[Rfam]
RNA sequence: CUUGGUUUCCAUGAUGAUCGAAUUAACAGAAGAGUUCUUGAAGACUAUAAUUCAUCACCCAAGACUGAUAGAAAC
Numbered sequence: 001c002u003u004g005g006u007u008u009c010c011a012u013g014a015u016g017a018u019c020g021a022a023u024u025a026a027c028a029g030a031a032g033a034g035u036u037c038u039u040g041a042a043g044a045c046u047a048u049a050a051u052u053c054a055u056c057a058c059c060c061a062a063g064a065c066u067g068a069u070a071g072a073a074a075c
Stems, first nucleotide, its partner, number of pairs: 002071002029037003
Shown here is a 75-nucleotide RNA from Ceratitis capitata, a member of the family "Small nucleolar RNA CD11". Lineage of the source: Eukaryota > Bilateria > Protostomia > Pancrustacea > Ceratitis. The literature on the family includes a 2005 paper in RNA by Huang et al., "Genome-wide analyses of two families of snoRNA genes from Drosophila melanogaster, demonstrating the extensive utilization of introns for coding of snoRNAs".